The record is a 127-nucleotide RNA from Hevea brasiliensis, which matches "U11 spliceosomal RNA" in Rfam. A search with the family's covariance model found it, with a score of 77 bits. The literature on the family includes a 1988 paper in Proc Natl Acad Sci U S A by Montzka and Steitz, "Additional low-abundance human small nuclear ribonucleoproteins: U11, U12, etc". Its Rfam clan is "U1 clan".
[Rfam]
RNA sequence: UAAAAGGGUCGGUUGGCUAAUUAUGCCACACUCGCCCUCAUUUGGUGGGUGCCGUAUGGCAAUCAAGACAUAUGGCCGACAAAAUUUAUGGGACUUAAAAGGGUUGGCUUGCGCGGCCGACCCUCCU
Numbered sequence: 001u002a003a004a005a006g007g008g009u010c011g012g013u014u015g016g017c018u019a020a021u022u023a024u025g026c027c028a029c030a031c032u033c034g035c036c037c038u039c040a041u042u043u044g045g046u047g048g049g050u051g052c053c054g055u056a057u058g059g060c061a062a063u064c065a066a067g068a069c070a071u072a073u074g075g076c077c078g079a080c081a082a083a084a085u086u087u088a089u090g091g092g093a094c095u096u097a098a099a100a101g102g103g104u105u106g107g108c109u110u111g112c113g114c115g116g117c118c119g120a121c122c123c124u125c126c127u
Stems, first nucleotide, its partner, number of pairs: 008080005014028004029051008052075007099124001101122001103121005109116002
Source information:
It is annotated as a spliceosomal small nuclear RNA.